[Rfam]
RNA sequence: AGGAGAGAGAGGGCGGCCGACGGUAGGACAUUGUCCGGCUGAGGAAGUUCCCUCCUCCACAGGGCAGAUGGGUCGGGAAAUCCGGCCGGGCGAGAGCUCGGGCAAGGGCUCAGAAACGACACAGCCGGGGCGCAGGAUGAUCUGUGGACAGUGACGUUGCCUUCGGAUAUGAUGAAACGGCGACACCCCAUCGGAGCAAGCCCGCACAGCCGGGAUGAUUGCCCAAGGACCGGCGGGUAGGGUGCAUUAGUUGAAUGCCGCCUGAAACAGAAGGGGGACUACUACUCUCACCU
Numbered sequence: 001a002g003g004a005g006a007g008a009g010a011g012g013g014c015g016g017c018c019g020a021c022g023g024u025a026g027g028a029c030a031u032u033g034u035c036c037g038g039c040u041g042a043g044g045a046a047g048u049u050c051c052c053u054c055c056u057c058c059a060c061a062g063g064g065c066a067g068a069u070g071g072g073u074c075g076g077g078a079a080a081u082c083c084g085g086c087c088g089g090g091c092g093a094g095a096g097c098u099c100g101g102g103c104a105a106g107g108g109c110u111c112a113g114a115a116a117c118g119a120c121a122c123a124g125c126c127g128g129g130g131c132g133c134a135g136g137a138u139g140a141u142c143u144g145u146g147g148a149c150a151g152u153g154a155c156g157u158u159g160c161c162u163u164c165g166g167a168u169a170u171g172a173u174g175a176a177a178c179g180g181c182g183a184c185a186c187c188c189c190a191u192c193g194g195a196g197c198a199a200g201c202c203c204g205c206a207c208a209g210c211c212g213g214g215a216u217g218a219u220u221g222c223c224c225a226a227g228g229a230c231c232g233g234c235g236g237g238u239a240g241g242g243u244g245c246a247u248u249a250g251u252u253g254a255a256u257g258c259c260g261c262c263u264g265a266a267a268c269a270g271a272a273g274g275g276g277g278a279c280u281a282c283u284a285c286u287c288u289c290a291c292c293u
Stems, first nucleotide, its partner, number of pairs: 001293003005289005010283002012262006021041004046280003050277005055196004062224003067192005072086005087100005101187002108181002122171002125166003128162004142151002200243004209234005

The family of this 293-nucleotide RNA sequence from Methanomassiliicoccales archaeon RumEn M2 is "Archaeal RNase P". Gene Ontology terms of the family: ribonuclease P activity, tRNA processing and multimeric ribonuclease P complex. NCBI's taxonomy places the organism under Archaea, Methanobacteriati, Thermoplasmatota, Thermoplasmata, Methanomassiliicoccales. A reference for the family is Brown (1999), "The Ribonuclease P Database", Nucleic Acids Res. Clan: RNaseP clan.